A member of the RNA family "SAM (S-adenosyl methionine) riboswitch aptamer" from Ornithinicoccus hortensis, 116 nucleotides long. The family is grouped with related families in Rfam's "SAM clan". The literature on the family includes a 2008 paper in RNA by Weinberg et al., "The aptamer core of SAM-IV riboswitches mimics the ligand-binding site of SAM-I riboswitches". From the family's description: SAM-IV is a mRNA element that regulates gene expression via direct sensing of S-adenosylmethionine (SAM or AdoMet). SAM-IV riboswitches share conserved nucleotide positions with the previously described SAM-I riboswitches sequence analysis and molecular recognition experiments suggest that SAM-I and SAM-IV riboswitches share similar ligand binding sites, but have different scaffolds. Pairs were carried over by alignment from the consensus structure, which is taken from published work.
[Rfam]
RNA sequence: GGUCGAGAGUUCCGGUGUCCAAGCCCUGGCUGAGCCGGACGGCAACCCUUCCGCAUGGUGACGGGGUGCUCCAGGUGAUGACCAGGCUGGCCUACCCGGGUCCGCAAGCACGUAUG
Numbered sequence: 001g002g003u004c005g006a007g008a009g010u011u012c013c014g015g016u017g018u019c020c021a022a023g024c025c026c027u028g029g030c031u032g033a034g035c036c037g038g039a040c041g042g043c044a045a046c047c048c049u050u051c052c053g054c055a056u057g058g059u060g061a062c063g064g065g066g067u068g069c070u071c072c073a074g075g076u077g078a079u080g081a082c083c084a085g086g087c088u089g090g091c092c093u094a095c096c097c098g099g100g101u102c103c104g105c106a107a108g109c110a111c112g113u114a115u116g
Base pairs, nucleotide, nucleotide: 001083002082003081004080009040011039012038013037014036015035016034022031023030041070042069043068046066047065048064050061051060086105087104089102090101091100